[Rfam]
RNA sequence: GCCACGCUAUAGCAGCACGUAAAUAUUGGUGUGAGAAUAGACCCCAAUAUUAGCUGUGCUGCUUCAGUGUGGC
Numbered sequence: 001g002c003c004a005c006g007c008u009a010u011a012g013c014a015g016c017a018c019g020u021a022a023a024u025a026u027u028g029g030u031g032u033g034a035g036a037a038u039a040g041a042c043c044c045c046a047a048u049a050u051u052a053g054c055u056g057u058g059c060u061g062c063u064u065c066a067g068u069g070u071g072g073c
Stems, first nucleotide, its partner, number of pairs: 001073003005069003010066001011063008020053001022051008
This 73-nucleotide RNA sequence from Oncorhynchus kisutch belongs to the Rfam family "mir-16 microRNA precursor family". Lineage of the source: Eukaryota > Opisthokonta > Chordata > Salmoninae > Oncorhynchus.